[Rfam]
RNA sequence: GGGUCAUUAGCUCAGUUGGUAGAGCACUGGACUUUUAAUCCAGGUGUCCCGGGUUCGAGUCCCGGAUGACUCA
Numbered sequence: 001g002g003g004u005c006a007u008u009a010g011c012u013c014a015g016u017u018g019g020u021a022g023a024g025c026a027c028u029g030g031a032c033u034u035u036u037a038a039u040c041c042a043g044g045u046g047u048c049c050c051g052g053g054u055u056c057g058a059g060u061c062c063c064g065g066a067u068g069a070c071u072c073a
Base pairs, nucleotide, nucleotide: 001072002071003070004069005068006067007066010025011024012023013022027043028042029041030040031039049065050064051063052062053061